[Rfam]
RNA sequence: UCCUCAUCCCGAGCGGCCGAGGGAACUGGCCCGACGACGCCGCGGCAACCGGCGGGAACCCCGCAAGGUGCCAAUGCCAGCCCCCCAGGGGAACGAUGAGGA
Numbered sequence: 001u002c003c004u005c006a007u008c009c010c011g012a013g014c015g016g017c018c019g020a021g022g023g024a025a026c027u028g029g030c031c032c033g034a035c036g037a038c039g040c041c042g043c044g045g046c047a048a049c050c051g052g053c054g055g056g057a058a059c060c061c062c063g064c065a066a067g068g069u070g071c072c073a074a075u076g077c078c079a080g081c082c083c084c085c086c087a088g089g090g091g092a093a094c095g096a097u098g099a100g101g102a
Stems, first nucleotide, its partner, number of pairs: 001102008013043005021032003026080004044072004049068002052064003076094001081091004